[Rfam]
RNA sequence: UGAAUCCUGCCUGAGUAACCGCUAGCCACGGGCUCAGUAUCGAGUUUUGCUGCGUUGAUAUAAGACGCAAGUCGAAGUUCAACGUUGAUGCGUAAAUACGAAAGGUAGUGAGGGUGAGAGGGAUCGGCUGGCUGCCGAACCCUGAACGAGAUUGAGCUCCGAAAUCAUGGUUUCCUGUUGGAUACUGCCCACGGUGUGUGCACGCCCGAAGGUGAAACCCGCAGUCGCGUCUUUGCGAGCGACAUCGAGAGUCCCGGGGUCGAAGAUCC
Numbered sequence: 001u002g003a004a005u006c007c008u009g010c011c012u013g014a015g016u017a018a019c020c021g022c023u024a025g026c027c028a029c030g031g032g033c034u035c036a037g038u039a040u041c042g043a044g045u046u047u048u049g050c051u052g053c054g055u056u057g058a059u060a061u062a063a064g065a066c067g068c069a070a071g072u073c074g075a076a077g078u079u080c081a082a083c084g085u086u087g088a089u090g091c092g093u094a095a096a097u098a099c100g101a102a103a104g105g106u107a108g109u110g111a112g113g114g115u116g117a118g119a120g121g122g123a124u125c126g127g128c129u130g131g132c133u134g135c136c137g138a139a140c141c142c143u144g145a146a147c148g149a150g151a152u153u154g155a156g157c158u159c160c161g162a163a164a165u166c167a168u169g170g171u172u173u174c175c176u177g178u179u180g181g182a183u184a185c186u187g188c189c190c191a192c193g194g195u196g197u198g199u200g201c202a203c204g205c206c207c208g209a210a211g212g213u214g215a216a217a218c219c220c221g222c223a224g225u226c227g228c229g230u231c232u233u234u235g236c237g238a239g240c241g242a243c244a245u246c247g248a249g250a251g252u253c254c255c256g257g258g259g260u261c262g263a264a265g266a267u268c269c
Base pairs, nucleotide, nucleotide: 012036013035014034015033019031020030021029023238025236026235038103040101041100044097045096046095047094048092049091050087052085053084054083055082056081057080058079153263154261156260157259158258159257160256161255180254181253182252185251186250187213188212189211193206194205195204218249220247221246224243225242226241227240228239
RNA: Group II catalytic intron D1-D4-6
Organism: Novipirellula maiorica